[Rfam]
RNA sequence: CCGGCUCCGGUUCACCUCGAAGAACUUCUCGACGAGGACCCGGCGGCC
Numbered sequence: 001c002c003g004g005c006u007c008c009g010g011u012u013c014a015c016c017u018c019g020a021a022g023a024a025c026u027u028c029u030c031g032a033c034g035a036g037g038a039c040c041c042g043g044c045g046g047c048c
Stems, first nucleotide, its partner, number of pairs: 003048003007043004015037005022030002
About this RNA:
The record is a 48-nucleotide RNA sequence from Saccharothrix sp. ALI-22-I, which matches "L31-Actinobacteria ribosomal protein leader" in Rfam. It scores 52 bits against the family's covariance model. The family's consensus secondary structure is taken from published work. Taxonomically the source falls in Saccharothrix (Bacteria, Bacillati, Pseudonocardiales, Pseudonocardiaceae).